[Rfam]
RNA sequence: CCGCAAUUCCCUCAAUUUUCGGUCGAAAAAUCGAUUUUCCUGAUUUUCGACUUCUGAAAGGAUUGCAAAAUAAGAUUAGCUCGAGAUGCGUGUACUGUUUUCGAAACUAAUAGAAAAUGGUUCCUUUUCUCCUCGGGACAUGC
Numbered sequence: 001c002c003g004c005a006a007u008u009c010c011c012u013c014a015a016u017u018u019u020c021g022g023u024c025g026a027a028a029a030a031u032c033g034a035u036u037u038u039c040c041u042g043a044u045u046u047u048c049g050a051c052u053u054c055u056g057a058a059a060g061g062a063u064u065g066c067a068a069a070a071u072a073a074g075a076u077u078a079g080c081u082c083g084a085g086a087u088g089c090g091u092g093u094a095c096u097g098u099u100u101u102c103g104a105a106a107c108u109a110a111u112a113g114a115a116a117a118u119g120g121u122u123c124c125u126u127u128u129c130u131c132c133u134c135g136g137g138a139c140a141u142g143c
Stems, first nucleotide, its partner, number of pairs: 003066006021054002024049005080137006088129001094121009

The record is a 143-nucleotide RNA sequence from Caenorhabditis angaria, which matches "Caenorhabditis snoRNA ceN104" in Rfam. Rfam links the family to the GO terms RNA processing and nucleolus. The family has 5 seed sequences and 21 matches in Rfam 15.1. A search with the family's covariance model found it, with a score of 81 bits. The literature on the family includes a 2007 paper in BMC Mol Biol by Jia et al., "Systematic identification of non-coding RNA 2,2,7-trimethylguanosine cap structures in Caenorhabditis elegans".